[Rfam]
RNA sequence: CGAACCGCUGCGGGAGAGCCCCGACCACGGGCGCCGAAGGAGCAAGUCCCUCCCCGGAAUCUCUCAGGCCCACGUACCGCUGCCGGUCA
Numbered sequence: 001c002g003a004a005c006c007g008c009u010g011c012g013g014g015a016g017a018g019c020c021c022c023g024a025c026c027a028c029g030g031g032c033g034c035c036g037a038a039g040g041a042g043c044a045a046g047u048c049c050c051u052c053c054c055c056g057g058a059a060u061c062u063c064u065c066a067g068g069c070c071c072a073c074g075u076a077c078c079g080c081u082g083c084c085g086g087u088c089a
Base pairs, nucleotide, nucleotide: 007083008082010080011079012078013077020031021030022029023028033069034068035067036065037064040063041062042061